[Rfam]
RNA sequence: GCUGUAUAUCUGAUUGACUGAAUUAUUUUUGGACGCGGGUUCGACUCCCGCCGUCUCCACCAAUAGGGCAUUUGGCUUAAGUGUUUUAUUGGCGGGGACGUAUUGGCUUCGACAGGGAUAACUAGGAAAAUUGGCAGUCGGUAGGCGAUGACCGUAAAUCAAGCACAUCAAUAAAUGCUAACGAUGAAAACUUUGCAUUGGCAGCUUAA
Numbered sequence: 001g002c003u004g005u006a007u008a009u010c011u012g013a014u015u016g017a018c019u020g021a022a023u024u025a026u027u028u029u030u031g032g033a034c035g036c037g038g039g040u041u042c043g044a045c046u047c048c049c050g051c052c053g054u055c056u057c058c059a060c061c062a063a064u065a066g067g068g069c070a071u072u073u074g075g076c077u078u079a080a081g082u083g084u085u086u087u088a089u090u091g092g093c094g095g096g097g098a099c100g101u102a103u104u105g106g107c108u109u110c111g112a113c114a115g116g117g118a119u120a121a122c123u124a125g126g127a128a129a130a131u132u133g134g135c136a137g138u139c140g141g142u143a144g145g146c147g148a149u150g151a152c153c154g155u156a157a158a159u160c161a162a163g164c165a166c167a168u169c170a171a172u173a174a175a176u177g178c179u180a181a182c183g184a185u186g187a188a189a190a191c192u193u194u195g196c197a198u199u200g201g202c203a204g205c206u207u208a209a
Stems, first nucleotide, its partner, number of pairs: 001138004014128002025119003029115003035051005052100007139154004
Dot-bracket structure: ((((.........((.........(((.(((...(((((.......)))))(((((((...................................)))))))............))).))).......))......))))((((........)))).......................................................
The family of this 209-nucleotide RNA sequence from Taylorella equigenitalis is "permuted transfer-messenger RNA". Rfam classes the family as a non-coding RNA gene. The source organism's lineage runs through Bacteria, Pseudomonadati, Betaproteobacteria, Alcaligenaceae and Taylorella. Rfam's curators write: Bacterial tmRNA, also known as 10Sa RNA or SsrA, is named for its dual tRNA and mRNA-like properties. Its role is to liberate the mRNA from a stalled ribosome. To accomplish this part of the tmRNA is used as a reading frame that ends in a translation stop signal. The broken mRNA is replaced in the ribosome by the tmRNA and translation of the tmRNA leads to addition of a proteolysis tag to the incomplete protein enabling recognition by a protease.